The record is a 117-nucleotide RNA from Pan troglodytes, which matches "Small nucleolar RNA ACA64" in Rfam. A reference for the family is Schattner et al. (2006), "A computational screen for mammalian pseudouridylation guide H/ACA RNAs", RNA. Pairs were carried over by alignment from the consensus structure, which was predicted with WAR. The source organism's lineage runs through Eukaryota, Bilateria, Chordata, Gnathostomata and Pan. Gene Ontology terms of the family: RNA processing and nucleolus. The match comes from Rfam's covariance-model search (75 bits). It is annotated as an H/ACA-box small nucleolar RNA.
RNA sequence: GUUGGAUGAAAAUCAUCCCGGGCUUUGCCAGUGGCCGCGAGUGCCCAGAGCUUCCAGGGGCCUCAGCUCACCAUGCACUGCCCCGUGUGUGGCAGUGAAACCCAGGCCCUGACAGGC
Numbered sequence: 001g002u003u004g005g006a007u008g009a010a011a012a013u014c015a016u017c018c019c020g021g022g023c024u025u026u027g028c029c030a031g032u033g034g035c036c037g038c039g040a041g042u043g044c045c046c047a048g049a050g051c052u053u054c055c056a057g058g059g060g061c062c063u064c065a066g067c068u069c070a071c072c073a074u075g076c077a078c079u080g081c082c083c084c085g086u087g088u089g090u091g092g093c094a095g096u097g098a099a100a101c102c103c104a105g106g107c108c109c110u111g112a113c114a115g116g117c
Stems, first nucleotide, its partner, number of pairs: 013040002016037001021036004057110001059108005068098004076089003